[Rfam]
RNA sequence: GUGGGCGUGGUCACCAUCCAGCCGCAGACCGUGCCGCUGAUCACCGAAUUGCCCGGUCGCCUGGAAGCCUCGCGCAUCGCCCAGGUGCGGGCCCGCGUGGCUGGUGUGGUGCAGAAGCGGGUGUUCACCGAAGGCUCCGACGUGAAGGCCGGGCAGGUUCUGUUCCAGAUCGA
Numbered sequence: 001g002u003g004g005g006c007g008u009g010g011u012c013a014c015c016a017u018c019c020a021g022c023c024g025c026a027g028a029c030c031g032u033g034c035c036g037c038u039g040a041u042c043a044c045c046g047a048a049u050u051g052c053c054c055g056g057u058c059g060c061c062u063g064g065a066a067g068c069c070u071c072g073c074g075c076a077u078c079g080c081c082c083a084g085g086u087g088c089g090g091g092c093c094c095g096c097g098u099g100g101c102u103g104g105u106g107u108g109g110u111g112c113a114g115a116a117g118c119g120g121g122u123g124u125u126c127a128c129c130g131a132a133g134g135c136u137c138c139g140a141c142g143u144g145a146a147g148g149c150c151g152g153g154c155a156g157g158u159u160c161u162g163u164u165c166c167a168g169a170u171c172g173a
Stems, first nucleotide, its partner, number of pairs: 003054005008047001010045001011043001013041001015039002019036001021034002023031002055150004059143002066136003071133001075130001079092004094121001097118001102114001104112003159169003
The record is a 173-nucleotide sequence from Rubrivivax sp., which matches "Burkholderia RNA 14" in Rfam. For this family Rfam cites "Experimental identification of small non-coding regulatory RNAs in the opportunistic human pathogen Burkholderia cenocepacia J2315" (Ramos et al., Genomics, 2013). Gene Ontology term of the family: protein binding. Taxonomically the source falls in Rubrivivax (Bacteria, Pseudomonadati, Betaproteobacteria, Sphaerotilaceae). A search with the family's covariance model found it, with a score of 71 bits. Pairs were carried over by alignment from the consensus structure, which was predicted with RNAfold. From the family's description: Co-purified with Hfq, expression confirmed by Northern blot.